Shown here is a 91-nucleotide sequence from Citreimonas salinaria, a member of the family "L2-Alphaproteobacteria ribosomal protein leader".
Nucleotides: 091
Base pairs, nucleotide, nucleotide: 001018002017003016004015006014007013008012026070027069028068029067031065032064033063034062035061
Number, partner (000 for none) and nucleotide at each position: 001018g002017g003016g004015g005000a006014c007013c008012u009000u010000c011000g012008g013007g014006g015004c016003c017002c018001u019000u020000c021000a022000u023000c024000c025000g026070g027069g028068c029067g030000c031065c032064u033063c034062g035061u036000g037000c038000g039000c040000c041000c042000c043000a044000a045000a046000c047000a048000g049000a050000g051000c052000g053000a054000c055000c056000c057000g058000c059000c060000a061035a062034c063033g064032g065031g066000u067029c068028g069027c070026c071000c072000a073000a074000g075000c076000u077000g078000a079000c080000g081000g082000a083000a084000g085000a086000c087000a088000g089000a090000a091000a
Lineage of the source: Bacteria > Pseudomonadati > Pseudomonadota > Roseobacteraceae > Citreimonas. It is annotated as a cis-regulatory leader.